[Rfam]
RNA sequence: GGCCUCCCUCUGUGGGGUGAUCAAUCGCGGGGUUCCUAGAUUGAUUGCCCCACAGAGAGAGGCC
Numbered sequence: 001g002g003c004c005u006c007c008c009u010c011u012g013u014g015g016g017g018u019g020a021u022c023a024a025u026c027g028c029g030g031g032g033u034u035c036c037u038a039g040a041u042u043g044a045u046u047g048c049c050c051c052a053c054a055g056a057g058a059g060a061g062g063c064c
Stems, first nucleotide, its partner, number of pairs: 001064006008057019029036002
A member of the RNA family "mir-9242 microRNA precursor family" from Cnephaeus nilssonii, 64 nucleotides long. Rfam 15.1 lists 940 matches to the family in 18 species. The organism belongs to Cnephaeus, within Eukaryota.